Description
This 358-nucleotide part of an RNA from Halococcus morrhuae belongs to the Rfam family "Archaeal large subunit ribosomal RNA". A reference for the family is Yusupov et al. (2001), "Crystal structure of the ribosome at 5.5 A resolution", Science. Rfam links the family to the GO terms ribosome and structural constituent of ribosome. The source organism's lineage runs through Archaea, Methanobacteriati, Halobacteriales, Halococcaceae and Halococcus.
RNA sequence: CACAGUAGCAGCGGUAGUCGGGUUAGAAAUCCCGACGGCCUCACGGACAAGGGUUCCUCGGCAAUGUUCGUCAACCGAGGGUUAGCCGGUCCUCAGUCUUACCGCAGUUCGAGUAAGACGAAUCGGGAAACUGGUUAAUAUUCCAGUGCCCGCGUGCAAUCAUGCCGACGCCUCGGGGUCGACCGAGCCGGGCACUCGCCCGGUCGAAUCACCAAAACUUCGUGGAAGCCGUAACGGCACGAAGCGGGCGAACGGUGAGAUAGAGAAAUUCGGUCCAACCUGGGGCCCGUGAAAAGGCGCACGCGGUCCGUACCCAGAUCCGACACAGGUGUCCGUGGCGGCGAAAGCCAAGGCCUGU
Numbered sequence: 001c002a003c004a005g006u007a008g009c010a011g012c013g014g015u016a017g018u019c020g021g022g023u024u025a026g027a028a029a030u031c032c033c034g035a036c037g038g039c040c041u042c043a044c045g046g047a048c049a050a051g052g053g054u055u056c057c058u059c060g061g062c063a064a065u066g067u068u069c070g071u072c073a074a075c076c077g078a079g080g081g082u083u084a085g086c087c088g089g090u091c092c093u094c095a096g097u098c099u100u101a102c103c104g105c106a107g108u109u110c111g112a113g114u115a116a117g118a119c120g121a122a123u124c125g126g127g128a129a130a131c132u133g134g135u136u137a138a139u140a141u142u143c144c145a146g147u148g149c150c151c152g153c154g155u156g157c158a159a160u161c162a163u164g165c166c167g168a169c170g171c172c173u174c175g176g177g178g179u180c181g182a183c184c185g186a187g188c189c190g191g192g193c194a195c196u197c198g199c200c201c202g203g204u205c206g207a208a209u210c211a212c213c214a215a216a217a218c219u220u221c222g223u224g225g226a227a228g229c230c231g232u233a234a235c236g237g238c239a240c241g242a243a244g245c246g247g248g249c250g251a252a253c254g255g256u257g258a259g260a261u262a263g264a265g266a267a268a269u270u271c272g273g274u275c276c277a278a279c280c281u282g283g284g285g286c287c288c289g290u291g292a293a294a295a296g297g298c299g300c301a302c303g304c305g306g307u308c309c310g311u312a313c314c315c316a317g318a319u320c321c322g323a324c325a326c327a328g329g330u331g332u333c334c335g336u337g338g339c340g341g342c343g344a345a346a347g348c349c350a351a352g353g354c355c356u357g358u
Base pairs, nucleotide, nucleotide: 017036018035019034020033021032022031037355038354039353040352045334046333047332048331051314052313056080057079058078059077060076061075065073066072087310088309089308091126092125096119097118098117099116100115101114103111104110130147131146132145133144134143150306151305152304153303154302155301156300157299164298165297166296170286171285172284173283174282175281176280177279181275182274183273184272185271187204188203189202190201191200209258210257211256212255219248220247221246222245223244228238229237230236320329321328336350337349338348339347